[Rfam]
RNA sequence: CAGGGAAAAAACUUUCUCACCGAAACCAUUCCUUGUUUGGUAACAGCUUUCUAUAAAUCUAAAGAAUUA
Numbered sequence: 001c002a003g004g005g006a007a008a009a010a011a012c013u014u015u016c017u018c019a020c021c022g023a024a025a026c027c028a029u030u031c032c033u034u035g036u037u038u039g040g041u042a043a044c045a046g047c048u049u050u051c052u053a054u055a056a057a058u059c060u061a062a063a064g065a066a067u068u069a
Stems, first nucleotide, its partner, number of pairs: 001035006
Shown here is a 69-nucleotide RNA sequence from Chlorobium chlorochromatii, a member of the family "Lnt RNA". The family's RNA type in Rfam is cis-regulatory element. The family's consensus secondary structure is taken from published work. It is one of the family's seed sequences. The source organism's lineage runs through Bacteria, Pseudomonadati, Chlorobiota, Chlorobium and Chlorobium chlorochromatii.